[Rfam]
RNA sequence: GACCCGAUCUCGGGAGAACCAGUUCGCUGGUGCCGAAGGAGCAACCGCCUCGGAAUCUCUCAGGCCACAGGACCGAGACCGGAAU
Numbered sequence: 001g002a003c004c005c006g007a008u009c010u011c012g013g014g015a016g017a018a019c020c021a022g023u024u025c026g027c028u029g030g031u032g033c034c035g036a037a038g039g040a041g042c043a044a045c046c047g048c049c050u051c052g053g054a055a056u057c058u059c060u061c062a063g064g065c066c067a068c069a070g071g072a073c074c075g076a077g078a079c080c081g082g083a084a085u
Base pairs, nucleotide, nucleotide: 006080008078009077010076011075012074013073019030020029021028022027032065033064034063035061036060039059040058041057045052
Shown here is an 85-nucleotide RNA sequence from Thalassorhabdomicrobium marinisediminis, a member of the family "Glycine riboswitch aptamer". A search with the family's covariance model found it, with a score of 60 bits. The organism belongs to Thalassorhabdomicrobium, within Bacteria. Pairs were carried over by alignment from the consensus structure.